[Rfam]
RNA sequence: CUAGGGCAAUCCGAAAACCUAUUAAAUAGAGUAGGAA
Numbered sequence: 001c002u003a004g005g006g007c008a009a010u011c012c013g014a015a016a017a018c019c020u021a022u023u024a025a026a027u028a029g030a031g032u033a034g035g036a037a
Stems, first nucleotide, its partner, number of pairs: 002021004010036003
DUF805b RNA: a 37-nucleotide RNA from Winogradskyella flava. NCBI's taxonomy places the organism under Bacteria, Flavobacteriia, Flavobacteriales, Flavobacteriaceae, Winogradskyella. The match comes from Rfam's covariance-model search (40 bits). The base pairs follow the family's consensus structure, which is taken from published work.